Notes
Rfam assigns this 171-nucleotide RNA to the family "Group II catalytic intron D1-D4-3". Rfam's curators put it in the seed alignment.

RNA sequence: GAAGCCGUGAGGCCAGACCGAAAGAAGGGUGUAGCAAAGACACGACCGCACGAACAGAAACAGGCGGCGAGGCCGGGCGCGGGCGAUGAGCGGGCGGGGAACCGCGAAAUCCAUCUGUCACCGAAAGACGCGCAAGGUAGAGCCUGGCGGCACGGGUCGAAAGUACAUGUU
Numbered sequence: 001g002a003a004g005c006c007g008u009g010a011g012g013c014c015a016g017a018c019c020g021a022a023a024g025a026a027g028g029g030u031g032u033a034g035c036a037a038a039g040a041c042a043c044g045a046c047c048g049c050a051c052g053a054a055c056a057g058a059a060a061c062a063g064g065c066g067g068c069g070a071g072g073c074c075g076g077g078c079g080c081g082g083g084c085g086a087u088g089a090g091c092g093g094g095c096g097g098g099g100a101a102c103c104g105c106g107a108a109a110u111c112c113a114u115c116u117g118u119c120a121c122c123g124a125a126a127g128a129c130g131c132g133c134a135a136g137g138u139a140g141a142g143c144c145u146g147g148c149g150g151c152a153c154g155g156g157u158c159g160a161a162a163g164u165a166c167a168u169g170u171u
Base pairs, nucleotide, nucleotide: 004013005012006011028171029170030169031168032167034164035163039158040157041156043154044153046150047149048148049147061146062145063144064143065142072138073137074136077133078132079131080130081129085111086110087109090105091104092103093102